The record is a 98-nucleotide RNA from Cornus nuttallii, which matches "Plastid-rps12 3UTR RNA" in Rfam.
RNA sequence: GGUUUCCGUUGGUGCAAAUCCAAUUACCUCCAUUUUAAAUGAAAAGCAAUUCCCCAUUGGUAACAAAUGGUUAUUCAUUAAGCGGGGAAAAUCCUAUU
Numbered sequence: 001g002g003u004u005u006c007c008g009u010u011g012g013u014g015c016a017a018a019u020c021c022a023a024u025u026a027c028c029u030c031c032a033u034u035u036u037a038a039a040u041g042a043a044a045a046g047c048a049a050u051u052c053c054c055c056a057u058u059g060g061u062a063a064c065a066a067a068u069g070g071u072u073a074u075u076c077a078u079u080a081a082g083c084g085g086g087g088a089a090a091a092u093c094c095u096a097u098u
Stems, first nucleotide, its partner, number of pairs: 009023004052087004056078002059075006
Description:
NCBI's taxonomy places the organism under Eukaryota, Streptophyta, Embryophyta, Magnoliopsida, Cornus. Pairs were carried over by alignment from the consensus structure, which was predicted with LocARNA. Plastid rpl20 is a non-coding RNA (ncRNA) recognised in plastids. It was found in the three prime untranslated region (3UTR) of rps12 gene, its 3UTR location sugest a role in transcript maduration. The family's RNA type in Rfam is cis-regulatory element.